[Rfam]
Rfam assigns this 60-nucleotide RNA sequence from Microvirga makkahensis to the family "terC RNA". The family's consensus secondary structure is taken from published work.
RNA sequence: UGUCGGCCGCCGGGCCCCUCUGACGGGAUGCGAUCUGCCCCGUGAUGUCGGAGCCGAUGU
Numbered sequence: 001u002g003u004c005g006g007c008c009g010c011c012g013g014g015c016c017c018c019u020c021u022g023a024c025g026g027g028a029u030g031c032g033a034u035c036u037g038c039c040c041c042g043u044g045a046u047g048u049c050g051g052a053g054c055c056g057a058u059g060u
Stems, first nucleotide, its partner, number of pairs: 006054002010051004023043005029037002